[Rfam]
Rfam assigns this 299-nucleotide RNA sequence from Streptosporangium sandarakinum to the family "5' ureB small RNA".
RNA sequence: CGUGCUGGGCCUGCUGGGGGGUGAGGAAGUGGACGUGCGUGUCGAUCCCUCCCGGCGUGGCGAUGAGGUUCUCGCCGGAGAUCACCUCGGUGCUCGCGCUGACGAUCAGACGCCGGUCGACCCCGUUCUGGGUGUGCGGGUUGCCGGACUUGCCGAUGCCGGCGAUCUUCCCGUCCUUGACGCCGAUGUCGCCCUUGACGAUGCCCAGCACCGGAUCCAUGAUCACCGCGUUGGUGAUCACCAGGUCCAGGGCGACCGAGCUGUCCGAGGCCGGGUCGGCCGACAUCCCGUCCCGGGCG
Numbered sequence: 001c002g003u004g005c006u007g008g009g010c011c012u013g014c015u016g017g018g019g020g021g022u023g024a025g026g027a028a029g030u031g032g033a034c035g036u037g038c039g040u041g042u043c044g045a046u047c048c049c050u051c052c053c054g055g056c057g058u059g060g061c062g063a064u065g066a067g068g069u070u071c072u073c074g075c076c077g078g079a080g081a082u083c084a085c086c087u088c089g090g091u092g093c094u095c096g097c098g099c100u101g102a103c104g105a106u107c108a109g110a111c112g113c114c115g116g117u118c119g120a121c122c123c124c125g126u127u128c129u130g131g132g133u134g135u136g137c138g139g140g141u142u143g144c145c146g147g148a149c150u151u152g153c154c155g156a157u158g159c160c161g162g163c164g165a166u167c168u169u170c171c172c173g174u175c176c177u178u179g180a181c182g183c184c185g186a187u188g189u190c191g192c193c194c195u196u197g198a199c200g201a202u203g204c205c206c207a208g209c210a211c212c213g214g215a216u217c218c219a220u221g222a223u224c225a226c227c228g229c230g231u232u233g234g235u236g237a238u239c240a241c242c243a244g245g246u247c248c249a250g251g252g253c254g255a256c257c258g259a260g261c262u263g264u265c266c267g268a269g270g271c272c273g274g275g276u277c278g279g280c281c282g283a284c285a286u287c288c289c290g291u292c293c294c295g296g297g298c299g
Stems, first nucleotide, its partner, number of pairs: 001299003005295001007293003012164006018076002021073001023071001031052002035049001037048001039046002057069002077154002081150001085146001090144003094140002097136003106131002109129001112126002115123002170282001171279003176275002181273002183270002193228001196225002232267003237262001239260001244257004
Lineage of the source: Bacteria > Actinomycetota > Actinomycetes > Streptosporangiales > Streptosporangium.